Annotation: This 89-nucleotide sequence from Aliidiomarina taiwanensis belongs to the Rfam family "t44 RNA". From the family's description: This family consists of a number of bacterial RNA genes of between 135 and 170 bases in length. The t44 gene has been identified in several species of enteric bacteria but homologs have also been identified in Pseudomonas and Coxiella species. The t44 gene is found between the map and rpsB genes in all species in the full alignment apart from Shigella flexneri. The family's RNA type in Rfam is small RNA. The base pairs follow the family's consensus structure, which was predicted with LocARNA. The match comes from Rfam's covariance-model search (79 bits). NCBI's taxonomy places the organism under Bacteria, Pseudomonadota, Alteromonadales, Idiomarinaceae, Aliidiomarina.
RNA sequence: UACAUUAACUUAAAUUAACACACAUAUACCGACACAUUCUGCGGGGUGCUCUUUAAUGAGUCGCGGCAUGGGGUAUAUGGAGGCCUAAC
Numbered sequence: 001u002a003c004a005u006u007a008a009c010u011u012a013a014a015u016u017a018a019c020a021c022a023c024a025u026a027u028a029c030c031g032a033c034a035c036a037u038u039c040u041g042c043g044g045g046g047u048g049c050u051c052u053u054u055a056a057u058g059a060g061u062c063g064c065g066g067c068a069u070g071g072g073g074u075a076u077a078u079g080g081a082g083g084c085c086u087a088a089c
Stems, first nucleotide, its partner, number of pairs: 023079008035070003039066005048061004